[Rfam]
RNA sequence: UGCCGUGGACGACCUCGGCAUGCAUGACCACGUGGCGGGACGACCCGC
Numbered sequence: 001u002g003c004c005g006u007g008g009a010c011g012a013c014c015u016c017g018g019c020a021u022g023c024a025u026g027a028c029c030a031c032g033u034g035g036c037g038g039g040a041c042g043a044c045c046c047g048c
Stems, first nucleotide, its partner, number of pairs: 001020005007014002035048005

Rfam assigns this 48-nucleotide sequence from Paraburkholderia phymatum to the family "Guanidine-II riboswitch aptamer (mini-ykkC)".
Taxonomically the source falls in Paraburkholderia phymatum (Bacteria, Pseudomonadota, Betaproteobacteria, Burkholderiaceae).
From the family's description: Simpler in structure and has fewer highly conserved nucleotide positions than the ykkC-yxkD leader.